[Rfam]
RNA sequence: GGGAAAUGAAGUUGAGGAUGGGGAGAUGAGCCACCCCGAGUCCUCCUCAAGAGAAUAGGCUCA
Numbered sequence: 001g002g003g004a005a006a007u008g009a010a011g012u013u014g015a016g017g018a019u020g021g022g023g024a025g026a027u028g029a030g031c032c033a034c035c036c037c038g039a040g041u042c043c044u045c046c047u048c049a050a051g052a053g054a055a056u057a058g059g060c061u062c063a
Stems, first nucleotide, its partner, number of pairs: 014045005019039001021037003028062005

Annotation:
A member of the RNA family "Ma3 gene ribosomal frameshift signal" from Heterocephalus glaber, 63 nucleotides long. It scores 38 bits against the family's covariance model. Gene Ontology term of the family: translational frameshifting. By type it is a frameshift element.